Small nucleolar RNA SNORA69: a 132-nucleotide sequence from Callithrix jacchus. Rfam links the family to the GO terms RNA processing and nucleolus. U69 is a member of the H/ACA class of small nucleolar RNAs (snoRNAs) which act as guides in the the modification of uridines to pseudouridines. The family has 16 seed sequences and 808 matches in Rfam 15.1. Taxonomically the source falls in Callithrix (Eukaryota, Gnathostomata, Amniota, Cebidae).

[Rfam]
Nucleotides: 132
Stems, first nucleotide, its partner, number of pairs: 003056006018043009067126001069124009083110003087106008
Number, partner (000 for none) and nucleotide at each position: 001000a002000a003056a004055g005054c006053a007052g008051g009000c010000u011000g012000c013000a014000a015000u016000u017000a018043c019042a020041g021040u022039g023038c024037u025036u026035c027000a028000u029000u030000u031000u032000g033000u034000g035026g036025a037024a038023g039022u040021a041020c042019u043018g044000c045000c046000a047000u048000u049000a050000u051008c052007c053006u054005g055004c056003u057000g058000a059000a060000a061000g062000a063000a064000a065000a066000g067126c068000c069124g070123u071122g072121u073120u074119a075118a076117u077116c078000a079000u080000u081000u082000u083110u084109g085108g086000c087106u088105u089104u090103a091102c092101c093100u094099u095000u096000a097000u098000g099094a100093g101092g102091g103090u104089a105088a106087a107000a108085u109084c110083a111000u112000g113000a114000g115000a116077g117076a118075u119074u120073g121072a122071c123070a124069c125000a126067g127000a128000c129000a130000a131000u132000u